Shown here is a 132-nucleotide RNA sequence from Delphinapterus leucas, a member of the family "Small nucleolar RNA SNORA72". U72 is a member of the H/ACA class of snoRNAs. A search with the family's covariance model found it, with a score of 143 bits. The family's consensus secondary structure was predicted with PFOLD.
[Rfam]
RNA sequence: CUGCAAAUAUUCUUGCUAUUCUGAUUUUAUAAUAAUCAGAGCAAGCUAAGAAUUUGCUACACUAAGACCAUGCAUGUGUCCCCAGACCUAGUUCUUUCCCCAGGUCUGGUUUUAUAAAUGCUGGUGAUAAAU
Number, nucleotide and partner (000 for none) at each position: 001c000002u000003g057004c056005a055006a000007a000008u000009a000010u000011u000012c000013u000014u000015g000016c000017u043018a000019u041020u040021c039022u038023g037024a036025u035026u034027u000028u000029a000030u000031a000032a000033u000034a026035a025036u024037c023038a022039g021040a020041g019042c000043a017044a000045g000046c000047u000048a000049a000050g000051a000052a000053u000054u000055u005056g004057c003058u000059a000060c000061a000062c000063u000064a000065a000066g000067a125068c124069c123070a122071u000072g121073c120074a000075u000076g000077u000078g000079u000080c000081c000082c109083c108084a107085g106086a105087c104088c103089u102090a000091g100092u000093u000094c000095u000096u000097u000098c000099c000100c091101c000102a089103g088104g087105u086106c085107u084108g083109g082110u000111u000112u000113u000114a000115u000116a000117a000118a000119u000120g073121c072122u070123g069124g068125u067126g000127a000128u000129a000130a000131a000132u000

Rfam links the family to the GO terms RNA processing and nucleolus. Lineage of the source: Eukaryota > Sarcopterygii > Dipnotetrapodomorpha > Amniota > Delphinapterus.